[Rfam]
RNA sequence: UUGCAUAUGAUGAGAUAUACUCGGAUUCCCCUUACAUUACGGGUGAUGUAAAAUCGAGUUUCAGAUGCA
Numbered sequence: 001u002u003g004c005a006u007a008u009g010a011u012g013a014g015a016u017a018u019a020c021u022c023g024g025a026u027u028c029c030c031c032u033u034a035c036a037u038u039a040c041g042g043g044u045g046a047u048g049u050a051a052a053a054u055c056g057a058g059u060u061u062c063a064g065a066u067g068c069a
Base pairs, nucleotide, nucleotide: 002069003068004067005066
RNA: Small nucleolar RNA snoR60